[Rfam]
A member of the RNA family "Small nucleolar RNA SNORD25" from Miscanthus lutarioriparius, 96 nucleotides long. A reference for the family is Qu et al. (2001), "Identification of 10 novel snoRNA gene clusters from Arabidopsis thaliana", Nucleic Acids Res. Rfam classes the family as a C/D-box small nucleolar RNA. A search with the family's covariance model found it, with a score of 75 bits.

RNA sequence: GAUAACAUUGAUGAGUCCUUGCACAGUUACAGACCUAUGAUGAUUGUUGCGGUAACGAUCGCAUCAUUCAAAGAACAUCUAAGGGUCUGAGUUGUC
Numbered sequence: 001g002a003u004a005a006c007a008u009u010g011a012u013g014a015g016u017c018c019u020u021g022c023a024c025a026g027u028u029a030c031a032g033a034c035c036u037a038u039g040a041u042g043a044u045u046g047u048u049g050c051g052g053u054a055a056c057g058a059u060c061g062c063a064u065c066a067u068u069c070a071a072a073g074a075a076c077a078u079c080u081a082a083g084g085g086u087c088u089g090a091g092u093u094g095u096c
Stems, first nucleotide, its partner, number of pairs: 002095005